RNA sequence: GGGAUGUGAUGAGUGGUCAUUUUUCGCGAUUAGCUUUGCGAGAUGGGUGUCCGCCCCAAUGCCAGUUACGACAAUACGGGCACUCCCAUUAAUACCAAUCUGAUCCC
Numbered sequence: 001g002g003g004a005u006g007u008g009a010u011g012a013g014u015g016g017u018c019a020u021u022u023u024u025c026g027c028g029a030u031u032a033g034c035u036u037u038g039c040g041a042g043a044u045g046g047g048u049g050u051c052c053g054c055c056c057c058a059a060u061g062c063c064a065g066u067u068a069c070g071a072c073a074a075u076a077c078g079g080g081c082a083c084u085c086c087c088a089u090u091a092a093u094a095c096c097a098a099u100c101u102g103a104u105c106c107c
Stems, first nucleotide, its partner, number of pairs: 001107004014097004023042005045085007063078001065075002
Annotation: Small nucleolar RNA Z279/snoR105/snoR108: a 107-nucleotide RNA from Manihot esculenta. From the family's description: This family includes the plant snoRNAs known as Z279, snoR105 and snoR108. NCBI's taxonomy places the organism under Eukaryota, Magnoliopsida, rosids, Malpighiales, Manihot. A search with the family's covariance model found it, with a score of 85 bits.